[Rfam]
small nucleolar RNA snoR117: a 76-nucleotide RNA sequence from Carya illinoinensis. Its family is annotated with nucleolus and RNA processing in the Gene Ontology. Rfam 15.1 lists 419 matches to the family in 211 species.
RNA sequence: GGCCUAUGAUGAUCAAAUUUGUCCGUACCAUCUGAGAUUAUCUUUGAUGUAUCUAUAUUUGCCAUUUCUGAGGCCU
Numbered sequence: 001g002g003c004c005u006a007u008g009a010u011g012a013u014c015a016a017a018u019u020u021g022u023c024c025g026u027a028c029c030a031u032c033u034g035a036g037a038u039u040a041u042c043u044u045u046g047a048u049g050u051a052u053c054u055a056u057a058u059u060u061g062c063c064a065u066u067u068c069u070g071a072g073g074c075c076u
Base pairs, nucleotide, nucleotide: 001075002074003073004072